[Rfam]
RNA sequence: CAAGCGGCGUAAAAGGCGUCCGCUAGUGGGACGGACCGUUACUAGCUGACGGACCGGCCCGCGACACCGUCAAAUUGCGGGGAGUCCCUAAAGCUUGUACUACUAAGCGGUUGCCGAAAGGGAUCCGUGGCCGGGGUAAUGACCUAGGGUACAGUAAAAACGUACAAGAUGUUACAAUGGGUAAUCCGCAGCCAAGCUCUAAGUCGGUCCCGAGAUGUCAAGACUCGGGGCGGAUAUGGGUGCAGUUCAACGACUAAAUGGUGGUGGGUUCCGGUAGAAACGCGUCCUGCGUACUCUGCCCGGGCUUAAGAUAUAGUCUGGCCCCCUGUGAAAGCGGGGG
Numbered sequence: 001c002a003a004g005c006g007g008c009g010u011a012a013a014a015g016g017c018g019u020c021c022g023c024u025a026g027u028g029g030g031a032c033g034g035a036c037c038g039u040u041a042c043u044a045g046c047u048g049a050c051g052g053a054c055c056g057g058c059c060c061g062c063g064a065c066a067c068c069g070u071c072a073a074a075u076u077g078c079g080g081g082g083a084g085u086c087c088c089u090a091a092a093g094c095u096u097g098u099a100c101u102a103c104u105a106a107g108c109g110g111u112u113g114c115c116g117a118a119a120g121g122g123a124u125c126c127g128u129g130g131c132c133g134g135g136g137u138a139a140u141g142a143c144c145u146a147g148g149g150u151a152c153a154g155u156a157a158a159a160a161c162g163u164a165c166a167a168g169a170u171g172u173u174a175c176a177a178u179g180g181g182u183a184a185u186c187c188g189c190a191g192c193c194a195a196g197c198u199c200u201a202a203g204u205c206g207g208u209c210c211c212g213a214g215a216u217g218u219c220a221a222g223a224c225u226c227g228g229g230g231c232g233g234a235u236a237u238g239g240g241u242g243c244a245g246u247u248c249a250a251c252g253a254c255u256a257a258a259u260g261g262u263g264g265u266g267g268g269u270u271c272c273g274g275u276a277g278a279a280a281c282g283c284g285u286c287c288u289g290c291g292u293a294c295u296c297u298g299c300c301c302g303g304g305c306u307u308a309a310g311a312u313a314u315a316g317u318c319u320g321g322c323c324c325c326c327u328g329u330g331a332a333a334g335c336g337g338g339g340g
Stems, first nucleotide, its partner, number of pairs: 065266005071260002076190006086181003191246002196241004204234002207231008250319001252318005268305004273300006325338005

This 340-nucleotide RNA from Fusarium xylarioides belongs to the Rfam family "Group I catalytic intron". The family has 12 seed sequences and 5,602 matches in Rfam 15.1. The match comes from Rfam's covariance-model search (91 bits). Rfam describes the family as follows. Group I catalytic introns are large self-splicing ribozymes. They catalyse their own excision from mRNA, tRNA and rRNA precursors in a wide range of organisms. The core secondary structure consists of 9 paired regions (P1-P9). These fold to essentially two domains - the P4-P6 domain (formed from the stacking of P5, P4, P6 and P6a helices) and the P3-P9 domain (formed from the P8, P3, P7 and P9 helices). Gene Ontology term of the family: Group I intron splicing.